[Rfam]
RNA sequence: CACCCGGCCGGAUCCCGUGGGGGGAAUCCGCUCCGGGAUAUGGGAAGCGCCUCGUUGUCGGC
Number, nucleotide and partner (000 for none) at each position: 001c060002a000003c037004c036005c035006g034007g033008c000009c030010g029011g028012a027013u026014c024015c023016c022017g000018u000019g000020g000021g000022g016023g015024g014025a000026a013027u012028c011029c010030g009031c000032u000033c007034c006035g005036g004037g003038a000039u000040a000041u000042g000043g051044g050045a000046a000047g000048c000049g000050c044051c043052u000053c000054g000055u000056u000057g000058u000059c000060g001061g000062c000
Notes
The family of this 62-nucleotide sequence is "Streptomyces RNA 2736". Rfam describes the family as follows. Identified by deep sequencing of transcriptome at the end of exponential growth phase. For this family Rfam cites "Deep sequencing-based identification of small non-coding RNAs in Streptomyces coelicolor" (Vockenhuber et al., RNA Biol, 2011).